[Rfam]
RNA sequence: UGCUGCCUGCACCUUCCGGGCAGGAUGACGCCCUUGCGGCCUUGGCGACUGUGUCCAAUCGGUGGUGCGAGAU
Numbered sequence: 001u002g003c004u005g006c007c008u009g010c011a012c013c014u015u016c017c018g019g020g021c022a023g024g025a026u027g028a029c030g031c032c033c034u035u036g037c038g039g040c041c042u043u044g045g046c047g048a049c050u051g052u053g054u055c056c057a058a059u060c061g062g063u064g065g066u067g068c069g070a071g072a073u
Stems, first nucleotide, its partner, number of pairs: 009068005016062002023056005029047004
RNA: Trypanosomatid snoRNA TB10Cs3H2